Shown here is a 92-nucleotide RNA from Elaeis guineensis, a member of the family "Small nucleolar RNA Z159/U59". Gene Ontology terms of the family: nucleolus and RNA processing. Lineage of the source: Eukaryota > Streptophytina > Spermatophyta > Cocoseae > Elaeis.
RNA sequence: GUUUCCAAUGAUGAUCAGAAAAAAAACUUUCGUUCUUCCGAGGUGUUUGUUAUACAAUGCGGAAGCUUCAUGGAGACCUGAACUGAGGAAAC
Numbered sequence: 001g002u003u004u005c006c007a008a009u010g011a012u013g014a015u016c017a018g019a020a021a022a023a024a025a026a027c028u029u030u031c032g033u034u035c036u037u038c039c040g041a042g043g044u045g046u047u048u049g050u051u052a053u054a055c056a057a058u059g060c061g062g063a064a065g066c067u068u069c070a071u072g073g074a075g076a077c078c079u080g081a082a083c084u085g086a087g088g089a090a091a092c
Base pairs, nucleotide, nucleotide: 003090004089005088006087